[Rfam]
RNA sequence: GGCGUAAAGGGAGCGUAGGCGGAGAUUCAAGCGGAUUGUACAAUCCCGGGGCCCAACCCCGGUUCUGCAGUCCGAACUGGAUCUCUUGGAUAGUUCAGGGGCAGGCGGAAUUCCUGGUGUAGCGGUGGAAUGCGUAGAGAUCAGGAAGAACACCGAUGGCGAAGGCAGCCUGCUGGGGACUUAUCGACGCUGAGGCUCGAAAGUGCGGGUAGCAAACAGGAUUAGAUACCCUGGUAGUCCGCACCGUAAACAAUGCAUACUGGGUGUCCGGGGGGUUCCCCGGGUACCGUAGCCAACGCGUUAAGUAUGCCGCCUGGGGAGUACGUACGCAAGUAUGAAACUCAAAGGAAU
Number, nucleotide and partner (000 for none) at each position: 001g314002g313003c312004g000005u000006a000007a000008a000009g311010g000011g198012a197013g196014c195015g000016u192017a000018g191019g190020c189021g000022g085023a084024g083025a082026u081027u080028c079029a000030a078031g077032c074033g073034g072035a071036u070037u069038g068039u067040a066041c000042a000043a000044u000045c000046c062047c061048g060049g059050g058051g057052c000053c000054c000055a000056a000057c051058c050059c049060c048061g047062g046063u000064u000065c000066u040067g039068c038069a037070g036071u035072c034073c033074g032075a000076a000077c031078u030079g028080g027081a026082u025083c024084u023085c022086u000087u000088g000089g185090a184091u183092a181093g180094u179095u178096c177097a000098g000099g000100g174101g173102c172103a171104g170105g169106c168107g151108g000109a000110a000111u147112u146113c145114c144115u143116g142117g141118u140119g000120u000121a000122g133123c132124g131125g000126u000127g000128g000129a000130a000131u124132g123133c122134g000135u000136a000137g000138a000139g000140a118141u117142c116143a115144g114145g113146a112147a111148g000149a000150a000151c107152a000153c000154c000155g000156a000157u000158g000159g166160c165161g000162a000163a000164g000165g160166c159167a000168g106169c105170c104171u103172g102173c101174u100175g000176g000177g096178g095179a094180c093181u092182u000183a091184u090185c089186g000187a000188c000189g020190c019191u018192g016193a000194g000195g014196c013197u012198c011199g000200a000201a000202a000203g244204u243205g242206c241207g240208g239209g000210u000211a000212g238213c237214a000215a000216a000217c233218a232219g231220g230221a000222u000223u000224a000225g000226a000227u000228a000229c000230c220231c219232u218233g217234g000235u000236a000237g213238u212239c208240c207241g206242c205243a204244c203245c000246g000247u000248a000249a000250a000251c000252a000253a000254u000255g310256c309257a308258u307259a306260c305261u000262g000263g288264g287265u286266g285267u284268c283269c282270g281271g280272g279273g278274g000275g000276u000277u000278c273279c272280c271281c270282g269283g268284g267285u266286a265287c264288c263289g000290u000291a000292g299293c298294c000295a000296a000297c000298g293299c292300g000301u000302u000303a000304a000305g260306u259307a258308u257309g256310c255311c009312g003313c002314c001315u000316g343317g342318g341319g000320a000321g000322u000323a000324c000325g336326u335327a334328c333329g000330c000331a000332a000333g328334u327335a326336u325337g000338a000339a000340a000341c318342u317343c316344a000345a000346a000347g000348g000349a000350a000351u000